[Rfam]
RNA: PyrR binding site
Organism: Listeria fleischmannii
RNA sequence: AGAACCUUUAAGUAAUAGUCCAGAGAGGCUAAAAAGGUAAACGUUUUGUAUAGGGAAAGUGUAUUCCCAACGACACGAUACGUGUACCCUUCGCCGCUUUGGUGAAGGGUUUUUUGUAU
Numbered sequence: 001a002g003a004a005c006c007u008u009u010a011a012g013u014a015a016u017a018g019u020c021c022a023g024a025g026a027g028g029c030u031a032a033a034a035a036g037g038u039a040a041a042c043g044u045u046u047u048g049u050a051u052a053g054g055g056a057a058a059g060u061g062u063a064u065u066c067c068c069a070a071c072g073a074c075a076c077g078a079u080a081c082g083u084g085u086a087c088c089c090u091u092c093g094c095c096g097c098u099u100u101g102g103u104g105a106a107g108g109g110u111u112u113u114u115u116g117u118a119u
Stems, first nucleotide, its partner, number of pairs: 004038006016031005044077001046075001049072001051070001053068005082114001084112001086110010